Rfam assigns this 52-nucleotide sequence from Solanum tuberosum to the family "MIR1886 microRNA precursor family".
[Rfam]
RNA sequence: UGAGAUGAAAUCAGCAUUUGGACAUGUAAUUUUAUGCUGAUUUCAACUCAUU
Numbered sequence: 001u002g003a004g005a006u007g008a009a010a011u012c013a014g015c016a017u018u019u020g021g022a023c024a025u026g027u028a029a030u031u032u033u034a035u036g037c038u039g040a041u042u043u044c045a046a047c048u049c050a051u052u
Base pairs, nucleotide, nucleotide: 001050002049003048004047006045007044008043009042010041011040012039013038014037015036016035017034018029019028020027
The family's consensus secondary structure was predicted with RNAalifold. The organism belongs to Solanum, within Eukaryota. Its family is annotated with RISC complex and miRNA-mediated post-transcriptional gene silencing in the Gene Ontology.